A member of the RNA family "small nucleolar RNA snoR143" from Ensete ventricosum, 166 nucleotides long.
RNA sequence: UUGCACCUGUUGAUAGAAUAGGUUCCUCUAGUUCUAGUCGUGGAACCCUAACUUAAGUGUGCAAAAAUCAAAAGCUGUUCUGCAGCAGCGGCCAGACAACCGUAGAGACGGAUCCACAGAUGAUUUGUUUGCAAUACCUCUCAUCUACUAAAUCUAUCUCACACUU
Numbered sequence: 001u002u003g004c005a006c007c008u009g010u011u012g013a014u015a016g017a018a019u020a021g022g023u024u025c026c027u028c029u030a031g032u033u034c035u036a037g038u039c040g041u042g043g044a045a046c047c048c049u050a051a052c053u054u055a056a057g058u059g060u061g062c063a064a065a066a067a068u069c070a071a072a073a074g075c076u077g078u079u080c081u082g083c084a085g086c087a088g089c090g091g092c093c094a095g096a097c098a099a100c101c102g103u104a105g106a107g108a109c110g111g112a113u114c115c116a117c118a119g120a121u122g123a124u125u126u127g128u129u130u131g132c133a134a135u136a137c138c139u140c141u142c143a144u145c146u147a148c149u150a151a152a153u154c155u156a157u158c159u160c161a162c163a164c165u166u
Stems, first nucleotide, its partner, number of pairs: 002063005014055003019050004024044003028040001105160004110155003122140002126136003
Dot-bracket structure: .(((((.......(((..((((.(((.(...........).)))..))))..)))...))))).........................................((((.(((.........((..(((.....)))..))............))).))))......
By type it is an H/ACA-box small nucleolar RNA. Rfam 15.1 lists 660 matches to the family in 212 species. The match comes from Rfam's covariance-model search (74 bits).